A member of the RNA family "SAM (S-adenosyl methionine) riboswitch aptamer" from Prauserella flavalba, 112 nucleotides long. Taxonomically the source falls in Prauserella (Bacteria, Bacillati, Actinomycetota, Pseudonocardiales). Pairs were carried over by alignment from the consensus structure, which is taken from published work. It scores 109 bits against the family's covariance model. Rfam links the family to the GO terms regulation of gene expression and S-adenosylmethionine metabolic process. SAM-IV is a mRNA element that regulates gene expression via direct sensing of S-adenosylmethionine (SAM or AdoMet).

RNA sequence: GGUCAUGAGCGCCAGCGUCAAGCCCCGGCUUGCUGGCCGGCAACCCUCCGACCGUGGUGGGGUGCCCCGGGUGACGACCUGGCUCGCCGGAACAGGCGGGCAAGCGCGGGCC
Numbered sequence: 001g002g003u004c005a006u007g008a009g010c011g012c013c014a015g016c017g018u019c020a021a022g023c024c025c026c027g028g029c030u031u032g033c034u035g036g037c038c039g040g041c042a043a044c045c046c047u048c049c050g051a052c053c054g055u056g057g058u059g060g061g062g063u064g065c066c067c068c069g070g071g072u073g074a075c076g077a078c079c080u081g082g083c084u085c086g087c088c089g090g091a092a093c094a095g096g097c098g099g100g101c102a103a104g105c106g107c108g109g110g111c112c
Stems, first nucleotide, its partner, number of pairs: 001079004009038001011037006021030002039066003044062003048057002082101007